[Rfam]
RNA: MIR812 microRNA precursor family
Organism: Oryza sativa
RNA sequence: AAUAAGUAUAGUUUUGCACUGUUCAUGUCUAACGUUUGACCGUUCGUCUUAUUUGAAAAUUUUUUAUGAUUAAUAUUUUUGUUGUUAUUAGAUAAUAAAACAUGAAUAGUAUUUUAUGUGUGACUAACUUUUUUUAAUUUUCUUAUAAAUUUUUUAAAUAAGACGGACGGUCAAACGUUAGACACGAAUUUCUACGGCUGCACUUAUU
Numbered sequence: 001a002a003u004a005a006g007u008a009u010a011g012u013u014u015u016g017c018a019c020u021g022u023u024c025a026u027g028u029c030u031a032a033c034g035u036u037u038g039a040c041c042g043u044u045c046g047u048c049u050u051a052u053u054u055g056a057a058a059a060u061u062u063u064u065u066a067u068g069a070u071u072a073a074u075a076u077u078u079u080u081g082u083u084g085u086u087a088u089u090a091g092a093u094a095a096u097a098a099a100a101c102a103u104g105a106a107u108a109g110u111a112u113u114u115u116a117u118g119u120g121u122g123a124c125u126a127a128c129u130u131u132u133u134u135u136a137a138u139u140u141u142c143u144u145a146u147a148a149a150u151u152u153u154u155u156a157a158a159u160a161a162g163a164c165g166g167a168c169g170g171u172c173a174a175a176c177g178u179u180a181g182a183c184a185c186g187a188a189u190u191u192c193u194a195c196g197g198c199u200g201c202a203c204u205u206a207u208u
Base pairs, nucleotide, nucleotide: 028182029181030180031179032178033177035175036174037173038172039171040170041169042168043167044166045165046164047163048162049161050160051159052158